[Rfam]
Nucleotides: 150
Base pairs, nucleotide, nucleotide: 001149003147009024010023011022012021013020033112034111035110041053042052043051044050056105057104058103059102060101063083064082065081066079067078068077084096085095086094124143125142126141127140128139129138130137131136
Number, partner (000 for none) and nucleotide at each position: 001149a002000u003147a004000a005000a006000g007000a008000c009024g010023c011022g012021u013020c014000a015000a016000a017000a018000u019000c020013g021012g022011c023010g024009c025000a026000a027000a028000a029000u030000u031000u032000a033112g034111c035110g036000g037000u038000c039000u040000a041053g042052u043051c044050u045000u046000g047000g048000g049000a050044g051043g052042a053041c054000g055000u056105g057104a058103u059102u060101u061000c062000c063083g064082g065081c066079g067078c068077g069000g070000c071000u072000u073000a074000a075000c076000c077068c078067g079066c080000a081065g082064c083063c084096c085095c086094g087000g088000c089000a090000u091000a092000g093000c094086c095085g096084g097000u098000g099000u100000g101060a102059a103058a104057u105056c106000c107000a108000g109000g110035c111034g112033c113000g114000c115000g116000a117000a118000u119000u120000a121000a122000a123000a124143u125142g126141c127140g128139g129138a130137g131136c132000g133000c134000g135000a136131g137130c138129u139128c140127u141126g142125c143124a144000u145000u146000u147003u148000u149001u150000u
The family of this 150-nucleotide RNA from Jiella flava is "Alphaproteobacterial sRNA ar9". On this family, see del Val et al., RNA Biol 2012: "A survey of sRNA families in alpha-proteobacteria". The pairing is the family consensus, mapped onto this sequence. Lineage of the source: Bacteria > Pseudomonadati > Alphaproteobacteria > Aurantimonadaceae > Jiella. A search with the family's covariance model found it, with a score of 65 bits.